Shown here is a 121-nucleotide sequence from Bacillus sp. MUM 13, a member of the family "ylbH leader". A search with the family's covariance model found it, with a score of 102 bits. For this family Rfam cites "New RNA motifs suggest an expanded scope for riboswitches in bacterial genetic control" (Barrick et al., Proc Natl Acad Sci U S A, 2004). Rfam's curators write: This family is a putative regulatory RNA structure that is found upstream of the ylbH gene in B. subtilis and related low GC Gram-positive bacteria. The pairing is the family consensus, mapped onto this sequence.
RNA sequence: AAUAAAAAAACCUGCAGAAAUUACUGCAGGUCCUUCUAUAUCCUUUAUAAAAGGAAAGAAGGCAAAGGGAGAGGAGAAACCGGAGGAAGAGCUUAUGGGGAAACGUAAGUCUUCUCCGCGG
Numbered sequence: 001a002a003u004a005a006a007a008a009a010a011c012c013u014g015c016a017g018a019a020a021u022u023a024c025u026g027c028a029g030g031u032c033c034u035u036c037u038a039u040a041u042c043c044u045u046u047a048u049a050a051a052a053g054g055a056a057a058g059a060a061g062g063c064a065a066a067g068g069g070a071g072a073g074g075a076g077a078a079a080c081c082g083g084a085g086g087a088a089g090a091g092c093u094u095a096u097g098g099g100g101a102a103a104c105g106u107a108a109g110u111c112u113u114c115u116c117c118g119c120g121g
Stems, first nucleotide, its partner, number of pairs: 011030007031069005041056001043054003081118004086114004091110005